[Rfam]
RNA sequence: AACCUAUUCAGAGCGGCUGAGAGACCCGGGUCCAUGACGCCGCAGCAACCGCCGCAUAUGUGCGGAAGGUGCUAAGGCCGGGAUGCGAUAGGAA
Numbered sequence: 001a002a003c004c005u006a007u008u009c010a011g012a013g014c015g016g017c018u019g020a021g022a023g024a025c026c027c028g029g030g031u032c033c034a035u036g037a038c039g040c041c042g043c044a045g046c047a048a049c050c051g052c053c054g055c056a057u058a059u060g061u062g063c064g065g066a067a068g069g070u071g072c073u074a075a076g077g078c079c080g081g082g083a084u085g086c087g088a089u090a091g092g093a094a
Stems, first nucleotide, its partner, number of pairs: 003092006013043005021032002026081004044073004049069002052065004077086001

This 94-nucleotide sequence from Corynebacterium spheniscorum belongs to the Rfam family "SAM riboswitch aptamer (S box leader)". Clan: SAM clan. A search with the family's covariance model found it, with a score of 56 bits.